CpoB/ybgF ICR thermometer: a 138-nucleotide RNA sequence from Sodalis sp. Fse. Lineage of the source: Bacteria > Pseudomonadati > Gammaproteobacteria > Enterobacterales > Sodalis. By type it is an RNA thermoregulator. It scores 86 bits against the family's covariance model. For this family Rfam cites "Temperature-responsive in vitro RNA structurome of Yersinia pseudotuberculosis" (Righetti et al., Proc Natl Acad Sci U S A, 2016). Rfam describes the family as follows. Imprinting control region from upstream of cpoB/ybgF (tol/pal system protein).
[Rfam]
RNA sequence: UCAGAUUGAUAUGGUAUCUUACGGUAAAGAAAAACCGAUUGUAUUGGGUCAUGACGAGGCAGCUUAUUCCAAAAAUCGUCGUGCCGUGUUGGUAUACUAAGAUCUGACAUGCGCAAUAACUUGAGAGCUUACUUGUUA
Numbered sequence: 001u002c003a004g005a006u007u008g009a010u011a012u013g014g015u016a017u018c019u020u021a022c023g024g025u026a027a028a029g030a031a032a033a034a035c036c037g038a039u040u041g042u043a044u045u046g047g048g049u050c051a052u053g054a055c056g057a058g059g060c061a062g063c064u065u066a067u068u069c070c071a072a073a074a075a076u077c078g079u080c081g082u083g084c085c086g087u088g089u090u091g092g093u094a095u096a097c098u099a100a101g102a103u104c105u106g107a108c109a110u111g112c113g114c115a116a117u118a119a120c121u122u123g124a125g126a127g128c129u130u131a132c133u134u135g136u137u138a
Stems, first nucleotide, its partner, number of pairs: 001047004007041002014035002017032001019030002054137001057134003062129001065126001067124002075117002078114001080111004086105001088104001090102001